Rfam assigns this 91-nucleotide RNA sequence from Salix dunnii to the family "MIR476 microRNA precursor family". Lineage of the source: Eukaryota > Streptophytina > Tracheophyta > Mesangiospermae > Salix. The family's consensus secondary structure was predicted with RNAalifold.
[Rfam]
RNA sequence: GCUAGUAAUCCUUCUUGCAAAGUCAUUUAUUAUUUUCCCUCUAGUUACUAUAAUCAAUGGCUUUGAAAAGAUGGUUUUGCUAGCUGAAUCU
Numbered sequence: 001g002c003u004a005g006u007a008a009u010c011c012u013u014c015u016u017g018c019a020a021a022g023u024c025a026u027u028u029a030u031u032a033u034u035u036u037c038c039c040u041c042u043a044g045u046u047a048c049u050a051u052a053a054u055c056a057a058u059g060g061c062u063u064u065g066a067a068a069a070g071a072u073g074g075u076u077u078u079g080c081u082a083g084c085u086g087a088a089u090c091u
Stems, first nucleotide, its partner, number of pairs: 001084008011074002013071003016067001018065010029054005